[Rfam]
Nucleotides: 410
Stems, first nucleotide, its partner, number of pairs: 052154002055151002057073006090103001095100001106141003109136005115130002182230003187222004192217003196214001199213003203209002254309003259306003263303003268300002271297003276292003279288001310330004316323002334409004344402006363382004368377002
Number, partner (000 for none) and nucleotide at each position: 001000c002000g003000g004000a005000a006000c007000c008000g009000g010000a011000g012000g013000g014000a015000g016000a017000g018000c019000g020000g021000c022000c023000g024000g025000g026000g027000g028000u029000g030000a031000g032000g033000u034000u035000g036000c037000a038000g039000u040000g041000u042000g043000c044000u045000g046000u047000g048000a049000u050000g051000a052154g053153g054000a055151g056150u057073u058072g059071c060070g061069u062068g063000g064000a065000a066000g067000g068062c069061g070060c071059g072058u073057g074000c075000g076000g077000g078000c079000c080000g081000a082000a083000u084000g085000u086000g087000u088000g089000a090103g091000u092000g093000g094000a095100u096000g097000c098000g099000u100095g101000a102000a103090u104000g105000u106141g107140a108139g109136u110135g111134c112133g113132c114000g115130u116129g117000g118000u119000g120000c121000g122000u123000g124000c125000a126000a127000g128000g129116c130115g131000a132113g133112u134111g135110c136109g137000u138000g139108c140107u141106c142000c143000c144000g145000c146000c147000c148000c149000c150056g151055u152000g153053c154052c155000c156000c157000u158000c159000c160000c161000c162000c163000g164000g165000c166000c167000u168000a169000c170000a171000c172000c173000u174000u175000g176000a177000u178000c179000u180000u181000a182230u183229u184228u185000g186000a187222u188221c189220g190219g191000g192217u193216u194215g195000u196214g197000a198000c199213u200212c201211c202000a203209g204208c205000c206000c207000c208204g209203c210000c211201g212200g213199g214196c215194c216193g217192a218000c219190c220189c221188g222187a223000a224000a225000u226000g227000a228184a229183a230182g231000g232000c233000u234000c235000a236000c237000c238000u239000c240000c241000u242000g243000c244000g245000a246000a247000g248000c249000c250000c251000u252000u253000u254309u255308c256307u257000u258000g259306g260305g261304g262000c263303g264302c265301u266000g267000u268300g269299c270000a271297g272296c273295g274000a275000g276292g277291c278290c279288c280000a281000a282000u283000g284000g285000g286000c287000g288279g289000u290278g291277g292276c293000a294000a295273c296272g297271c298000c299269g300268c301265g302264g303263u304261c305260c306259c307256g308255g309254a310330g311329c312328c313327g314000a315000g316323c317322c318000u319000a320000c321000g322317g323316g324000g325000c326000c327313c328312g329311g330310c331000g332000c333000u334409c335408a336407g337406a338000c339000g340000u341000g342000a343000u344402g345401a346400a347399u348398u349397g350000a351000u352000c353000a354000g355000a356000u357000a358000g359000a360000c361000g362000a363382g364381g365380c366379c367000g368377g369376g370000c371000u372000c373000g374000u375000c376369c377368c378000g379366g380365g381364c382363c383000g384000c385000u386000g387000a388000u389000u390000a391000u392000c393000g394000a395000g396000g397349c398348g399347a400346u401345u402344c403000u404000g405000a406337u407336c408335u409334g410000a